[Rfam]
RNA sequence: ACUGGAGGGUGAAGAAAGCAGGGUCUGUGAAGUGAGCUUCUGCUGAUACUGCCCUCCUAUAUGAACUGGUUGGUCAGAGAGCACCCAAGACACCAAGAUACUGUCGGGGCUUAUUGCACCAUCCUACAUCC
Numbered sequence: 001a002c003u004g005g006a007g008g009g010u011g012a013a014g015a016a017a018g019c020a021g022g023g024u025c026u027g028u029g030a031a032g033u034g035a036g037c038u039u040c041u042g043c044u045g046a047u048a049c050u051g052c053c054c055u056c057c058u059a060u061a062u063g064a065a066c067u068g069g070u071u072g073g074u075c076a077g078a079g080a081g082c083a084c085c086c087a088a089g090a091c092a093c094c095a096a097g098a099u100a101c102u103g104u105c106g107g108g109g110c111u112u113a114u115u116g117c118a119c120c121a122u123c124c125u126a127c128a129u130c131c
Base pairs, nucleotide, nucleotide: 003059004057005056006055007054008053009052017044018043019042021040022039023038025036026035068123069122070121078115079114080112081111084108085107086106090104091103092102
RNA: Small Cajal body specific RNA 4